[Rfam]
RNA sequence: UAUAAAUAUACGCUUAAUUUCCGUCCGCUUGCGGAGGGAAAACGGGGGAACCGAUCAUUCAGGGGCGAAUCGUUCGCGCAGAACGUAGGGUACCAUCUACCCGAGUCCGUCAGCUAACCUCGUCGGCAGAGAUGGGUCUGAGA
Numbered sequence: 001u002a003u004a005a006a007u008a009u010a011c012g013c014u015u016a017a018u019u020u021c022c023g024u025c026c027g028c029u030u031g032c033g034g035a036g037g038g039a040a041a042a043c044g045g046g047g048g049a050a051c052c053g054a055u056c057a058u059u060c061a062g063g064g065g066c067g068a069a070u071c072g073u074u075c076g077c078g079c080a081g082a083a084c085g086u087a088g089g090g091u092a093c094c095a096u097c098u099a100c101c102c103g104a105g106u107c108c109g110u111c112a113g114c115u116a117a118c119c120u121c122g123u124c125g126g127c128a129g130a131g132a133u134g135g136g137u138c139u140g141a142g143a
Stems, first nucleotide, its partner, number of pairs: 012127003018041005042123006052062001063108003071085004088102004
A member of the RNA family "c-di-AMP riboswitch aptamer (ydaO/yuaA leader)" from Cohnella sp. CIP 111063, 143 nucleotides long. This family represents a conserved RNA structure found upstream of the ydaO and yuaA genes in Bacillus subtilis and related genes in other bacteria.